Rfam assigns this 54-nucleotide RNA sequence from Synaphobranchus kaupii to the family "UnaL2 LINE 3' element". Lineage of the source: Eukaryota > Opisthokonta > Euteleostomi > Neopterygii > Synaphobranchus. A reference for the family is Baba et al. (2004), "Solution structure of an RNA stem-loop derived from the 3' conserved region of eel LINE UnaL2", RNA. Rfam classes the family as a cis-regulatory element. The match comes from Rfam's covariance-model search (62 bits). The eel long interspersed element (LINE) UnaL2 and its partner short interspersed element (SINE) share a conserved 3' tail containing a stem-loop that is critical for their retrotransposition. Presumably, the first step of retrotransposition is the recognition of their 3' tails by UnaL2-encoded reverse transcriptase. The solution structure of a 17-nucleotide RNA derived from the 3' tail of UnaL2 was determined by NMR.

RNA sequence: AUAUAACAGCUGUGUAAGUCGCUCUGGACAAGAGCGUCUGCUAAAUGCCUGUGU
Dot-bracket structure: ............((((...((((((.....))))))..))).)...........